[Rfam]
RNA sequence: CUCCCCGAAAUAGCUUAAGGGCUAGCGUCGGAUGUUUCGUCGUGCAGGUAGAGAGUCUGAAUGGACUAGGGGGCUUACCAGCUUACUGAAUCCAACCAAUCUUCGAAUGGCACGCCGUGAAGUCCGGCAGUCAGACUGCGGGAGAUAAGUUCCGUAGUCGAGAGGGAAAGAACCCAGAUCGCCAGCUAAGGUCCCAAAAUACAUGCUAAGUGGAAAAGGAUGUGGAUGUGCUUAGACAGCCAGGAGGUUAGCUUAGAAGCAGCUAUCCUUUAAAGAAAGCGUAAUAGCUCACUGGUCAAGCGGGUCUGUGCCGACAAUUCAACGGGGCUCAAGCAUGUUACCGAAGCUGCGAACAGUAUUCUGUGGUAGGGGAGCAUUCCCUAAGUCUGUGAAGGUUGACCGUAAGGACAGCUGGAGACAUGGGAAGAGACUCU
Numbered sequence: 001c002u003c004c005c006c007g008a009a010a011u012a013g014c015u016u017a018a019g020g021g022c023u024a025g026c027g028u029c030g031g032a033u034g035u036u037u038c039g040u041c042g043u044g045c046a047g048g049u050a051g052a053g054a055g056u057c058u059g060a061a062u063g064g065a066c067u068a069g070g071g072g073g074c075u076u077a078c079c080a081g082c083u084u085a086c087u088g089a090a091u092c093c094a095a096c097c098a099a100u101c102u103u104c105g106a107a108u109g110g111c112a113c114g115c116c117g118u119g120a121a122g123u124c125c126g127g128c129a130g131u132c133a134g135a136c137u138g139c140g141g142g143a144g145a146u147a148a149g150u151u152c153c154g155u156a157g158u159c160g161a162g163a164g165g166g167a168a169a170g171a172a173c174c175c176a177g178a179u180c181g182c183c184a185g186c187u188a189a190g191g192u193c194c195c196a197a198a199a200u201a202c203a204u205g206c207u208a209a210g211u212g213g214a215a216a217a218g219g220a221u222g223u224g225g226a227u228g229u230g231c232u233u234a235g236a237c238a239g240c241c242a243g244g245a246g247g248u249u250a251g252c253u254u255a256g257a258a259g260c261a262g263c264u265a266u267c268c269u270u271u272a273a274a275g276a277a278a279g280c281g282u283a284a285u286a287g288c289u290c291a292c293u294g295g296u297c298a299a300g301c302g303g304g305u306c307u308g309u310g311c312c313g314a315c316a317a318u319u320c321a322a323c324g325g326g327g328c329u330c331a332a333g334c335a336u337g338u339u340a341c342c343g344a345a346g347c348u349g350c351g352a353a354c355a356g357u358a359u360u361c362u363g364u365g366g367u368a369g370g371g372g373a374g375c376a377u378u379c380c381c382u383a384a385g386u387c388u389g390u391g392a393a394g395g396u397u398g399a400c401c402g403u404a405a406g407g408a409c410a411g412c413u414g415g416a417g418a419c420a421u422g423g424g425a426a427g428a429g430a431c432u433c434u
Base pairs, nucleotide, nucleotide: 001374002373003372004371005370006369011024012023013022014021015020026130027128028127029126030125031124032123033122036121038117039116041114042113043112044111045110051104052102053101058098059097062094063093064092065091069087070086071084072083073082074081075080134159135158136157137156138155139154140153141152142151143150164175165174166173179352180351181350182349184348185347186346190342191341192340199339201338202337203336204335205334206333218312219311222309223308224307225306226305227304229302230301231300239296240295241294242293243292245269246268247267250264251263252262270274275290279288280287353364354363355362356361375429377426378425379424380423381422385419386418387417394413395412396411397410398409400407401406